The record is a 76-nucleotide RNA sequence from Crocodylus porosus, which matches "Mammalian CPEB3 ribozyme" in Rfam.
It scores 38 bits against the family's covariance model.
The organism belongs to Crocodylus, within Eukaryota.
The family's consensus secondary structure is taken from published work.
[Rfam]
Nucleotides: 076
Stems, first nucleotide, its partner, number of pairs: 013045003017042002022075004027070001028040002049065001051063002054060002
Number, partner (000 for none) and nucleotide at each position: 001000u002000c003000c004000a005000u006000c007000u008000a009000a010000g011000c012000a013045g014044g015043g016000a017042c018041c019000a020000c021000a022075g023074c024073a025072g026000a027070a028040g029039c030000u031000u032000u033000c034000a035000c036000a037000u038000u039029g040028c041018g042017g043015c044014c045013c046000u047000g048000u049065u050000u051063g052062a053000u054060u055059c056000c057000u058000u059055g060054a061000c062052u063051c064000u065049g066000u067000g068000a069000a070027u071000c072025c073024u074023g075022u076000a